This 120-nucleotide RNA from Streptococcus agalactiae belongs to the Rfam family "PyrR binding site". About the family: This family represents the PyrR binding site and terminator structure. This RNA structure is found upstream of a variety of genes involved in pyrimidine biosynthesis and transport. The alignment also includes a portion of the antiterminator structure.
RNA sequence: AUAUCCUUUAAGGUAUUGUCCAGAGAGGCAAACAAGGAAUUGCGUUAACAAAUAGUAAGUUAGUUCCCUAUCUAGCUUACUAUUUUGCAGAGCCUCCUUGUUUUAGGAGGCUUUUUUCUA
Numbered sequence: 001a002u003a004u005c006c007u008u009u010a011a012g013g014u015a016u017u018g019u020c021c022a023g024a025g026a027g028g029c030a031a032a033c034a035a036g037g038a039a040u041u042g043c044g045u046u047a048a049c050a051a052a053u054a055g056u057a058a059g060u061u062a063g064u065u066c067c068c069u070a071u072c073u074a075g076c077u078u079a080c081u082a083u084u085u086u087g088c089a090g091a092g093c094c095u096c097c098u099u100g101u102u103u104u105a106g107g108a109g110g111c112u113u114u115u116u117u118c119u120a
Base pairs, nucleotide, nucleotide: 004038005037006036007035008034016031017030018029019028020027050085051084052083053082054081055080056079057078058077059076060075061074062073063072089114090113091112092111093110094109095108096107097106098105